[Rfam]
Rfam assigns this 63-nucleotide sequence from Pantherophis guttatus to the family "Selenocysteine insertion sequence 1". The literature on the family includes a 2002 paper in Biochimie by Lambert et al., "A survey of metazoan selenocysteine insertion sequences". Rfam links the family to the GO term selenocysteine incorporation. It is annotated as a cis-regulatory element.
RNA sequence: GUUUCUUUAUGAUGACCGGUUUCGAAAUGGAGCGCCAGGAAACCGAGUCUGAAAUUGGGAGAU
Numbered sequence: 001g002u003u004u005c006u007u008u009a010u011g012a013u014g015a016c017c018g019g020u021u022u023c024g025a026a027a028u029g030g031a032g033c034g035c036c037a038g039g040a041a042a043c044c045g046a047g048u049c050u051g052a053a054a055u056u057g058g059g060a061g062a063u
Stems, first nucleotide, its partner, number of pairs: 001063005014049003017045007028037003

It scores 38 bits against the family's covariance model.